Rfam assigns this 73-nucleotide RNA sequence from Auanema sp. JU1783 to the family "tRNA". Rfam classes the family as a transfer RNA. A search with the family's covariance model found it, with a score of 53 bits. Lineage of the source: Eukaryota > Eumetazoa > Protostomia > Nematoda > Auanema.

[Rfam]
RNA sequence: GCCCGCGUGGCCUGAUGGAUAUGGCGUCUGACUUCGAAUCAGAAGAUUGUCGAUUCGAUCCCGGCCGUGGGCU
Numbered sequence: 001g002c003c004c005g006c007g008u009g010g011c012c013u014g015a016u017g018g019a020u021a022u023g024g025c026g027u028c029u030g031a032c033u034u035c036g037a038a039u040c041a042g043a044a045g046a047u048u049g050u051c052g053a054u055u056c057g058a059u060c061c062c063g064g065c066c067g068u069g070g071g072c073u
Stems, first nucleotide, its partner, number of pairs: 001072007010025003027043005049065004